[Rfam]
RNA sequence: AAUCAACCUCCUAAGUUUACCCCAUUUUGCACUUCUAGCCCCCCAUACCAAUUUUGAUUAAAUCAAUGCAUGCGUGGCACCCACAUCACUUAAAGUGACGUGCCACGUGUAACUUUCUUUUUUCUUAGGGGGUCAAAACUGCAAUUAAGCCUAAUAAUUAAAAUGAUAUGGGUGCCAUGUAUGCAUUGACCCAGUCAAAAUUGGUCUGGGGGGCCAAAAGUGUAAAAAGGGGUAAACUUAAUGGGCUAAUU
Numbered sequence: 001a002a003u004c005a006a007c008c009u010c011c012u013a014a015g016u017u018u019a020c021c022c023c024a025u026u027u028u029g030c031a032c033u034u035c036u037a038g039c040c041c042c043c044c045a046u047a048c049c050a051a052u053u054u055u056g057a058u059u060a061a062a063u064c065a066a067u068g069c070a071u072g073c074g075u076g077g078c079a080c081c082c083a084c085a086u087c088a089c090u091u092a093a094a095g096u097g098a099c100g101u102g103c104c105a106c107g108u109g110u111a112a113c114u115u116u117c118u119u120u121u122u123u124c125u126u127a128g129g130g131g132g133u134c135a136a137a138a139c140u141g142c143a144a145u146u147a148a149g150c151c152u153a154a155u156a157a158u159u160a161a162a163a164u165g166a167u168a169u170g171g172g173u174g175c176c177a178u179g180u181a182u183g184c185a186u187u188g189a190c191c192c193a194g195u196c197a198a199a200a201u202u203g204g205u206c207u208g209g210g211g212g213g214c215c216a217a218a219a220g221u222g223u224a225a226a227a228a229g230g231g232g233u234a235a236a237c238u239u240a241a242u243g244g245g246c247u248a249a250u251u
Base pairs, nucleotide, nucleotide: 001251002250005247007245008244012240013239014238015237016236017235018234019233020232021231022230023229025227026226027225028224029223030222031221032220033219034218036216038214039213040212041211042210043209044208045207072180073179075177076176077175078174079173080172081171082170
Source information:
This 251-nucleotide RNA from Medicago truncatula belongs to the Rfam family "MIR2619 microRNA precursor family". Its family is annotated with RISC complex and miRNA-mediated post-transcriptional gene silencing in the Gene Ontology. The source organism's lineage runs through Eukaryota, eudicotyledons, fabids, Fabaceae and Medicago.